[Rfam]
RNA sequence: UUUUAGCCCCGAUGGAAGUGGCAUCCUUUUUUGAGGUUUUUACCGAAAAAAAGAUAUAACGUACAGCGGGAAAUAGC
Number, nucleotide and partner (000 for none) at each position: 001u000002u000003u000004u000005a000006g000007c000008c000009c069010c068011g067012a000013u065014g064015g000016a000017a000018g060019u059020g000021g000022c000023a055024u054025c053026c000027u000028u000029u050030u049031u048032u047033g000034a000035g044036g043037u042038u000039u000040u000041u000042a037043c036044c035045g000046a000047a032048a031049a030050a029051a000052a000053g025054a024055u023056a000057u000058a000059a019060c018061g000062u000063a000064c014065a013066g000067c011068g010069g009070g000071a000072a000073a000074u000075a000076g000077c000
Flavo-1 RNA: a 77-nucleotide RNA sequence from Flavobacterium sp. 123. The family's consensus secondary structure is taken from published work. The source organism's lineage runs through Bacteria, Pseudomonadati, Bacteroidota, Flavobacteriia and Flavobacterium. It is annotated as a small RNA.